[Rfam]
RNA sequence: AUUUAAGGAACUUUUGUUAGAACCGGGAACAUCGUGUUCCGGGCGCAAAAGUCAGCACAUCCUGUGCA
Numbered sequence: 001a002u003u004u005a006a007g008g009a010a011c012u013u014u015u016g017u018u019a020g021a022a023c024c025g026g027g028a029a030c031a032u033c034g035u036g037u038u039c040c041g042g043g044c045g046c047a048a049a050a051g052u053c054a055g056c057a058c059a060u061c062c063u064g065u066g067c068a
Stems, first nucleotide, its partner, number of pairs: 011051007026040005055067004
Dot-bracket structure: ..........(((((((........(((((.....)))))....)))))))...((((.....)))).
A member of the RNA family "Bacillaceae-1 RNA" from Alteribacillus bidgolensis, 68 nucleotides long. A search with the family's covariance model found it, with a score of 43 bits. Lineage of the source: Bacteria > Bacillota > Caryophanales > Bacillaceae > Alteribacillus. The base pairs follow the family's consensus structure, which is taken from published work.